This 116-nucleotide RNA from Acetivibrio clariflavus belongs to the Rfam family "Group II catalytic intron D1-D4-2". The source organism's lineage runs through Bacteria, Bacillati, Clostridia, Acetivibrio and Acetivibrio clariflavus. The match comes from Rfam's covariance-model search (100 bits).
RNA sequence: GAGAGUAGAACUCUCGAAAUCGGCAUUCAGGUGCAGGUUUCAAACUGCCUGUUGGUGCUGCAGUCAAAAGCUGUGGUAUUGAGCGAAAUAGGAAAAGGUUGAUGAAUCAAUCAAGU
Numbered sequence: 001g002a003g004a005g006u007a008g009a010a011c012u013c014u015c016g017a018a019a020u021c022g023g024c025a026u027u028c029a030g031g032u033g034c035a036g037g038u039u040u041c042a043a044a045c046u047g048c049c050u051g052u053u054g055g056u057g058c059u060g061c062a063g064u065c066a067a068a069a070g071c072u073g074u075g076g077u078a079u080u081g082a083g084c085g086a087a088a089u090a091g092g093a094a095a096a097g098g099u100u101g102a103u104g105a106a107u108c109a110a111u112c113a114a115g116u
Stems, first nucleotide, its partner, number of pairs: 001015005016041006023034004046115001048092005053086001054080002057077003061073004097112006

Annotation:
Gene Ontology term of the family: Group II intron splicing.